A member of the RNA family "mir-3473 microRNA precursor family" from Cricetulus griseus, 79 nucleotides long.
RNA sequence: ACCACUGAGCCAUCUUUCCAGCCCUGUGUUGCGGUUUUUAAAAGAUUGGUGAUAAGGGCUGGAGAGAUGGCUCAGUGGU
Numbered sequence: 001a002c003c004a005c006u007g008a009g010c011c012a013u014c015u016u017u018c019c020a021g022c023c024c025u026g027u028g029u030u031g032c033g034g035u036u037u038u039u040a041a042a043a044g045a046u047u048g049g050u051g052a053u054a055a056g057g058g059c060u061g062g063a064g065a066g067a068u069g070g071c072u073c074a075g076u077g078g079u
Base pairs, nucleotide, nucleotide: 002078003077004076005075006074007073008072009071010070011069012068013067014066015065016064017063018062019061020060021059022058023057024056
About this RNA: Its family is annotated with miRNA-mediated post-transcriptional gene silencing, cellular response to mechanical stimulus and RISC complex in the Gene Ontology. Pairs were carried over by alignment from the consensus structure, which was predicted with RNAalifold. Lineage of the source: Eukaryota > Chordata > Craniata > Myomorpha > Cricetulus.